[Rfam]
RNA sequence: ACUAUCAAUGGUGAUGGAACUCGCCAAAACCGCCUUUCCAAACGGAUAAAUUCUGAUAUGGAAGGCUGAUGGUUCCUACUUUCUU
Numbered sequence: 001a002c003u004a005u006c007a008a009u010g011g012u013g014a015u016g017g018a019a020c021u022c023g024c025c026a027a028a029a030c031c032g033c034c035u036u037u038c039c040a041a042a043c044g045g046a047u048a049a050a051u052u053c054u055g056a057u058a059u060g061g062a063a064g065g066c067u068g069a070u071g072g073u074u075c076c077u078a079c080u081u082u083c084u085u
Stems, first nucleotide, its partner, number of pairs: 010025004016076006032066007
Overview:
A member of the RNA family "Fluoride riboswitch aptamer (crcB RNA motif)" from Nostoc sphaeroides, 85 nucleotides long. It scores 48 bits against the family's covariance model. For this family Rfam cites "Fluoride ion encapsulation by Mg2+ ions and phosphates in a fluoride riboswitch" (Ren et al., Nature, 2012).